Overview
This 79-nucleotide RNA from Neolamprologus brichardi belongs to the Rfam family "drz-agam-1 ribozyme". Pairs were carried over by alignment from the consensus structure, which is taken from published work. Rfam links the family to the GO term catalytic activity. Rfam 15.1 lists 10,507 matches to the family in 53 species.
RNA sequence: GGCCGGCAAAAUCCAAUCACCACCUCCUCGCGGUGUCGGCUGGAAACAAGAUCCUCUGGAACUUGGCUAAGGGUGAUGG
Numbered sequence: 001g002g003c004c005g006g007c008a009a010a011a012u013c014c015a016a017u018c019a020c021c022a023c024c025u026c027c028u029c030g031c032g033g034u035g036u037c038g039g040c041u042g043g044a045a046a047c048a049a050g051a052u053c054c055u056c057u058g059g060a061a062c063u064u065g066g067c068u069a070a071g072g073g074u075g076a077u078g079g
Base pairs, nucleotide, nucleotide: 013079014078015077017075020072021071022034023033024032047065048064049063050062052060053059054058